[Rfam]
RNA: Small nucleolar RNA SNORD77
RNA sequence: AUACGAUGAUGGUUGCAUAGUUCAGCAGAUUGGCUGUGAAGAGAUGAACCAAUGUCUGAUGUAUCU
Numbered sequence: 001a002u003a004c005g006a007u008g009a010u011g012g013u014u015g016c017a018u019a020g021u022u023c024a025g026c027a028g029a030u031u032g033g034c035u036g037u038g039a040a041g042a043g044a045u046g047a048a049c050c051a052a053u054g055u056c057u058g059a060u061g062u063a064u065c066u
Stems, first nucleotide, its partner, number of pairs: 001064004006037003010033001013028004043053001045051002